RNA sequence: AAAAGAAAGGAGCAAUAAUCAUUUUCUUGUUUUAUCAAGAGGGUGCUAUUGCUCCUUUAU
Dot-bracket structure: .....((((((((((((...((.((((((......)))))).))..))))))))))))..

Description: Rfam assigns this 60-nucleotide sequence from Capsicum baccatum to the family "Plastid-psbA-4 3UTR RNA". From the family's description: Plastid psbA-4 is a non-coding RNA (ncRNA) present in plastids. The literature on the family includes a 2023 paper in Plant Commun by Richter et al., "Retrograde signaling in plants: A critical review focusing on the GUN pathway and beyond". Clan: Plastid-psbA 3UTR RNA clan. The base pairs follow the family's consensus structure, which was predicted with LocARNA. The source organism's lineage runs through Eukaryota, Streptophytina, Spermatophyta, Solanales and Capsicum.